[Rfam]
RNA sequence: GAGACACCCCGAUGGAGCAGGACUUGCUUCAGUGGGGCGCUGGUGCUCACUGAGUCUGCCCUUGGAGUGUGUCACU
Number, nucleotide and partner (000 for none) at each position: 001g075002a000003g073004a072005c071006a070007c069008c000009c067010c000011g000012a000013u000014g062015g061016a000017g059018c058019a057020g000021g056022a055023c054024u000025u000026g000027c000028u000029u053030c052031a051032g050033u049034g048035g047036g046037g044038c043039g000040c000041u000042g000043g038044u037045g000046c036047u035048c034049a033050c032051u031052g030053a029054g023055u022056c021057u019058g018059c017060c000061c015062u014063u000064g000065g000066a000067g009068u000069g007070u006071g005072u004073c003074a000075c001076u000

This 76-nucleotide RNA from Cnephaeus nilssonii belongs to the Rfam family "mir-9229 microRNA precursor family". The match comes from Rfam's covariance-model search (75 bits). Its family is annotated with miRNA-mediated post-transcriptional gene silencing and RISC complex in the Gene Ontology.